[Rfam]
RNA: MIR5269 microRNA precursor family
Organism: Medicago truncatula
RNA sequence: UUAGGUAAAAUCAAUGUAGAUACUACACUUUGGAAAUGGAACCCACGUAAAAUGGUGGGACAUACAUUGAUUUCAUCCAA
Numbered sequence: 001u002u003a004g005g006u007a008a009a010a011u012c013a014a015u016g017u018a019g020a021u022a023c024u025a026c027a028c029u030u031u032g033g034a035a036a037u038g039g040a041a042c043c044c045a046c047g048u049a050a051a052a053u054g055g056u057g058g059g060a061c062a063u064a065c066a067u068u069g070a071u072u073u074c075a076u077c078c079a080a
Base pairs, nucleotide, nucleotide: 001080002079004077005076006075008073009072010071011070012069013068014067015066016065017064018063023058024057025056026054027053029051030050031049032048
Dot-bracket structure: ((.(((.(((((((((((....(((((.((((...............)))).)).)))....))))))))))).))).))